RNA sequence: UUGCGACAUGCGCCGGGUAACAGCAAGGUCGGCGUAAUGCUGGCAGCGUCAUUCGGACGUGGGAUCCUUGCUCCGGGGGUCGCACACAGG
Numbered sequence: 001u002u003g004c005g006a007c008a009u010g011c012g013c014c015g016g017g018u019a020a021c022a023g024c025a026a027g028g029u030c031g032g033c034g035u036a037a038u039g040c041u042g043g044c045a046g047c048g049u050c051a052u053u054c055g056g057a058c059g060u061g062g063g064a065u066c067c068u069u070g071c072u073c074c075g076g077g078g079g080u081c082g083c084a085c086a087c088a089g090g
Base pairs, nucleotide, nucleotide: 002084003083004082005081006080007079011077013076014075015074016073022072023071024070025069026068027067028044029043030042031041032040033039047059048058049057050056
The record is a 90-nucleotide sequence, which matches "DUF3800-VII RNA" in Rfam.